[Rfam]
RNA sequence: CCUCCCCUCCCUUACUCCAGUCACUCUGUCCCCAGUGAGGGUUCUGGCAUUGACAGGGGAUAGAGCAGCAUGGCUUUCUCACUUCUCUCAUCUAGGAACUUAAUCUUACAUGGGGCUUAUGAGACAGCUGAUCAUU
Number, nucleotide and partner (000 for none) at each position: 001c000002c000003u060004c059005c058006c057007c056008u055009c000010c000011c052012u000013u000014a000015c000016u000017c047018c046019a045020g044021u000022c000023a000024c039025u038026c037027u000028g000029u000030c000031c000032c000033c000034a000035g000036u000037g026038a025039g024040g000041g000042u000043u000044c020045u019046g018047g017048c000049a000050u000051u000052g011053a000054c000055a008056g007057g006058g005059g004060a003061u000062a000063g000064a000065g000066c000067a000068g000069c000070a000071u130072g129073g128074c000075u126076u000077u000078c000079u000080c000081a000082c000083u000084u000085c000086u115087c114088u113089c112090a111091u110092c000093u108094a107095g106096g105097a000098a000099c000100u000101u000102a000103a000104u000105c096106u095107u094108a093109c000110a091111u090112g089113g088114g087115g086116c000117u000118u000119a000120u000121g000122a000123g000124a000125c000126a075127g000128c073129u072130g071131a000132u000133c000134a000135u000136u000
RNA: Small nucleolar RNA SNORA49
Organism: Salmo trutta